[Rfam]
RNA sequence: GGAAAGAUGCAGAAGCAGAAAAACUGUUUCGGAUAAGGGAGGCGGAAGAAACAAAAAACAGCCUGAUGCAGGUAGCCAGUGAGCAUAUUGCACCACUUCAGGAUGCUAUAGAUUUAGAUAUUGCGACGGAGGAAGAGACAUCGUUACUGGCUGCAUGGAAGACAUAUCGAGUAUUGUUGCAUCGUGUUGAUACAACAGU
Numbered sequence: 001g002g003a004a005a006g007a008u009g010c011a012g013a014a015g016c017a018g019a020a021a022a023a024c025u026g027u028u029u030c031g032g033a034u035a036a037g038g039g040a041g042g043c044g045g046a047a048g049a050a051a052c053a054a055a056a057a058a059c060a061g062c063c064u065g066a067u068g069c070a071g072g073u074a075g076c077c078a079g080u081g082a083g084c085a086u087a088u089u090g091c092a093c094c095a096c097u098u099c100a101g102g103a104u105g106c107u108a109u110a111g112a113u114u115u116a117g118a119u120a121u122u123g124c125g126a127c128g129g130a131g132g133a134a135g136a137g138a139c140a141u142c143g144u145u146a147c148u149g150g151c152u153g154c155a156u157g158g159a160a161g162a163c164a165u166a167u168c169g170a171g172u173a174u175u176g177u178u179g180c181a182u183c184g185u186g187u188u189g190a191u192a193c194a195a196c197a198g199u
Base pairs, nucleotide, nucleotide: 008037011034015029017027063129064128065127068124069123073095075093079091080090081089082088097118098117101115102114103113104112